[Rfam]
RNA sequence: CUACGAGGAUGAUUUGGACUUGGAAUUCUCUCUUUCUGAUGGGUCAGUGGAGAAAGCUAAUACGUCCUGAGUAGC
Numbered sequence: 001c002u003a004c005g006a007g008g009a010u011g012a013u014u015u016g017g018a019c020u021u022g023g024a025a026u027u028c029u030c031u032c033u034u035u036c037u038g039a040u041g042g043g044u045c046a047g048u049g050g051a052g053a054a055a056g057c058u059a060a061u062a063c064g065u066c067c068u069g070a071g072u073a074g075c
Base pairs, nucleotide, nucleotide: 001074002073003072004071
This 75-nucleotide sequence from Vombatus ursinus belongs to the Rfam family "Small nucleolar RNA SNORD26".
Its family is annotated with nucleolus and RNA processing in the Gene Ontology.
Rfam 15.1 lists 451 matches to the family in 401 species.
Rfam classes the family as a C/D-box small nucleolar RNA.
A reference for the family is Tycowski et al. (1996), "A mammalian gene with introns instead of exons generating stable RNA products", Nature.
Lineage of the source: Eukaryota > Bilateria > Deuterostomia > Euteleostomi > Vombatus.
The family is grouped with related families in Rfam's "SNORD26 clan".
Pairs were carried over by alignment from the consensus structure, which was predicted with PFOLD.